[Rfam]
RNA sequence: UGGUCGGCAGUUCACCGAGGCGUCGCCGCCCCUUUGGGGGAGCUAAACCUGCCA
Numbered sequence: 001u002g003g004u005c006g007g008c009a010g011u012u013c014a015c016c017g018a019g020g021c022g023u024c025g026c027c028g029c030c031c032c033u034u035u036g037g038g039g040g041a042g043c044u045a046a047a048c049c050u051g052c053c054a
Stems, first nucleotide, its partner, number of pairs: 001017004029040004
Record summary:
Shown here is a 54-nucleotide sequence from Pseudodesulfovibrio senegalensis, a member of the family "COG3860 RNA". NCBI's taxonomy places the organism under Bacteria, Pseudomonadati, Thermodesulfobacteriota, Desulfovibrionia, Pseudodesulfovibrio. It is annotated as a cis-regulatory element.